[Rfam]
RNA sequence: GCUGGUCCGGGAUGAAGCCUAGUCUGAGUGGACAUCUGGAUGAGAGGAGCGGAUAUGGGGCUGAGACCAGCU
Numbered sequence: 001g002c003u004g005g006u007c008c009g010g011g012a013u014g015a016a017g018c019c020u021a022g023u024c025u026g027a028g029u030g031g032a033c034a035u036c037u038g039g040a041u042g043a044g045a046g047g048a049g050c051g052g053a054u055a056u057g058g059g060g061c062u063g064a065g066a067c068c069a070g071c072u
Stems, first nucleotide, its partner, number of pairs: 001071005
Background: The record is a 72-nucleotide RNA sequence from Tupaia belangeri, which matches "Small nucleolar RNA SNORD99" in Rfam. NCBI's taxonomy places the organism under Eukaryota, Chordata, Craniata, Tupaia, Tupaia belangeri. Rfam 15.1 lists 673 matches to the family in 613 species. The match comes from Rfam's covariance-model search (77 bits).